Description
The family of this 147-nucleotide RNA from Papaver somniferum is "small nucleolar RNA snoR135".
[Rfam]
RNA sequence: AAAGCAGAGAUUGUGUGUAUCAGAAUUUUGCUUAAUUCUUGCAAUUUAAUGUGAUAGAUUUCUCUGCGAAAUUGAUUAAUUGGUGAAAGUGGGCAGUUGGGUGUCAUAGAUUUAUUGAUUCAAUCAACAAUCAUUUUCUCCACAGUU
Numbered sequence: 001a002a003a004g005c006a007g008a009g010a011u012u013g014u015g016u017g018u019a020u021c022a023g024a025a026u027u028u029u030g031c032u033u034a035a036u037u038c039u040u041g042c043a044a045u046u047u048a049a050u051g052u053g054a055u056a057g058a059u060u061u062c063u064c065u066g067c068g069a070a071a072u073u074g075a076u077u078a079a080u081u082g083g084u085g086a087a088a089g090u091g092g093g094c095a096g097u098u099g100g101g102u103g104u105c106a107u108a109g110a111u112u113u114a115u116u117g118a119u120u121c122a123a124u125c126a127a128c129a130a131u132c133a134u135u136u137u138c139u140c141c142a143c144a145g146u147u
Stems, first nucleotide, its partner, number of pairs: 004067007016043004082141002085138008096128004
Lineage of the source: Eukaryota > Viridiplantae > Tracheophyta > Mesangiospermae > Papaver. Pairs were carried over by alignment from the consensus structure, which was predicted with RNAalifold.